[Rfam]
RNA sequence: CCGUCAAGCCAUCGAAACCACACACGCACCGACACACUGUCCUGGGUGCCCGCAAGGGUUGGACUUUGGGGUGCGUGGAGGCUCAAC
Numbered sequence: 001c002c003g004u005c006a007a008g009c010c011a012u013c014g015a016a017a018c019c020a021c022a023c024a025c026g027c028a029c030c031g032a033c034a035c036a037c038u039g040u041c042c043u044g045g046g047u048g049c050c051c052g053c054a055a056g057g058g059u060u061g062g063a064c065u066u067u068g069g070g071g072u073g074c075g076u077g078g079a080g081g082c083u084c085a086a087c
Base pairs, nucleotide, nucleotide: 023077024076025075026074027073028072029071030070035068036067039064040063041062042061048059049058050057051056